Background:
Shown here is a 67-nucleotide sequence from Bacillus sp. FJAT-50079, a member of the family "Bacillaceae-1 RNA".
RNA sequence: GAGUAAGGAUCAACGACUAAGAACGUCACAUCCUGUGACAAUGUCGUUGUGACUCGCAUUGUGCGAG
Numbered sequence: 001g002a003g004u005a006a007g008g009a010u011c012a013a014c015g016a017c018u019a020a021g022a023a024c025g026u027c028a029c030a031u032c033c034u035g036u037g038a039c040a041a042u043g044u045c046g047u048u049g050u051g052a053c054u055c056g057c058a059u060u061g062u063g064c065g066a067g
Base pairs, nucleotide, nucleotide: 011049012048013047014046015045016044017043025039026038027037028036029035053067054066055065056064057063
The family has 95 seed sequences and 5,721 matches in Rfam 15.1. Pairs were carried over by alignment from the consensus structure, which is taken from published work. NCBI's taxonomy places the organism under Bacteria, Bacillati, Bacillota, Caryophanales, Bacillus. Rfam classes the family as a small RNA.